[Rfam]
Background: This 205-nucleotide sequence from Clostridium tarantellae belongs to the Rfam family "Group II catalytic intron D1-D4-5". About the family: Group II introns are found in rRNA, tRNA and mRNA of organelles in fungi, plants and protists, and also in mRNA in bacteria. The source organism's lineage runs through Bacteria, Bacillati, Clostridia, Clostridiaceae and Clostridium.

RNA sequence: UAUAACUAUUAUCACGAAAGAUAGAAUGAUUGGGUAACGCCUUGAAAUAUCUUCCCAAAGGAUACGGAUAGCACUUUAUUAAGUAAAUAAUACGGUGUUAUAAGCCCGUUAAAUGGCUUGAUAACCACUUUAAAUAAAUAUUAAAAAUUCACUAAAAAAAAUAUUAAUUUUAUGGUUUAGUGGUGAUAAAGCUAGGGUCUAUAAA
Numbered sequence: 001u002a003u004a005a006c007u008a009u010u011a012u013c014a015c016g017a018a019a020g021a022u023a024g025a026a027u028g029a030u031u032g033g034g035u036a037a038c039g040c041c042u043u044g045a046a047a048u049a050u051c052u053u054c055c056c057a058a059a060g061g062a063u064a065c066g067g068a069u070a071g072c073a074c075u076u077u078a079u080u081a082a083g084u085a086a087a088u089a090a091u092a093c094g095g096u097g098u099u100a101u102a103a104g105c106c107c108g109u110u111a112a113a114u115g116g117c118u119u120g121a122u123a124a125c126c127a128c129u130u131u132a133a134a135u136a137a138a139u140a141u142u143a144a145a146a147a148u149u150c151a152c153u154a155a156a157a158a159a160a161a162u163a164u165u166a167a168u169u170u171u172a173u174g175g176u177u178u179a180g181u182g183g184u185g186a187u188a189a190a191g192c193u194a195g196g197g198u199c200u201a202u203a204a205a
Stems, first nucleotide, its partner, number of pairs: 018053006032042003054197003064109004068101008077092005115193005124184006130155003137149002159178004165172002